[Rfam]
RNA: Small nucleolar RNA SNORA14
Organism: Cottoperca gobio
RNA sequence: CAGCCUUACUAAACCCCCCAGUUGCAUUUUGUGGUCUCUGGGACAAGAAAGGGUGCAAGAUCAACCUUAGAAUUUUCCAAAGCUGAGAGCCAUGUGUCAGUAGCUCUUGGCUAUUUCACCUCUAAGACAGAA
Numbered sequence: 001c002a003g004c005c006u007u008a009c010u011a012a013a014c015c016c017c018c019c020a021g022u023u024g025c026a027u028u029u030u031g032u033g034g035u036c037u038c039u040g041g042g043a044c045a046a047g048a049a050a051g052g053g054u055g056c057a058a059g060a061u062c063a064a065c066c067u068u069a070g071a072a073u074u075u076u077c078c079a080a081a082g083c084u085g086a087g088a089g090c091c092a093u094g095u096g097u098c099a100g101u102a103g104c105u106c107u108u109g110g111c112u113a114u115u116u117c118a119c120c121u122c123u124a125a126g127a128c129a130g131a132a
Stems, first nucleotide, its partner, number of pairs: 003056002005053001007049001009047002017042005024035002061131002066126006081112007089104002095100001